Source information:
Shown here is a 110-nucleotide sequence from Trabulsiella odontotermitis, a member of the family "ArcZ RNA". Rfam describes the family as follows. This RNA was discovered in E. coli during a large scale screen. SraH expression is highly abundant in stationary phase, but low levels could be detected in exponentially growing cells as well. Pairs were carried over by alignment from the consensus structure, which was predicted with PFOLD. The source organism's lineage runs through Bacteria, Pseudomonadota, Gammaproteobacteria, Enterobacterales and Trabulsiella.
RNA sequence: GUGCAACCCGAAUUCUCAGGUUGCGUCCGUGCUAAAACCUCUUAAAACGAUUCCGGCGCAGCCACGUUUUCCCUGGUGUUGGCGCAGUAUUCGCGCACCCCGGUUUAUCC
Numbered sequence: 001g002u003g004c005a006a007c008c009c010g011a012a013u014u015c016u017c018a019g020g021u022u023g024c025g026u027c028c029g030u031g032c033u034a035a036a037a038c039c040u041c042u043u044a045a046a047a048c049g050a051u052u053c054c055g056g057c058g059c060a061g062c063c064a065c066g067u068u069u070u071c072c073c074u075g076g077u078g079u080u081g082g083c084g085c086a087g088u089a090u091u092c093g094c095g096c097a098c099c100c101c102g103g104u105u106u107a108u109c110c
Stems, first nucleotide, its partner, number of pairs: 020062008075099003082096004